[Rfam]
RNA sequence: CCGCAAGCCUUCCAGCGUGGCUCGGUCGUGCCCAUGACCCUGAUCAUUCCUGUAGCGCUUGCAAGAGCAAAUCUGUGACGUUUGAGGCCUCCCACUGCUCUGUCUUGGGGGUGAGGUUAUAGAAAUCUCAGACAAGC
Dot-bracket structure: ..((((((.........(((...((((........))))....)))..........))))))...........((.((.........((((.(.(((........).)).).)))).........)).)).......
Shown here is a 137-nucleotide sequence from Podarcis muralis, a member of the family "Small nucleolar RNA SNORA9".
A search with the family's covariance model found it, with a score of 90 bits.
By type it is an H/ACA-box small nucleolar RNA.
Clan: SNORA9 clan.
Rfam's curators write: ACA9 is a member of the H/ACA class of snoRNA that guide the sites of modification of uridines to pseudouridines.
The family has 36 seed sequences and 1,202 matches in Rfam 15.1.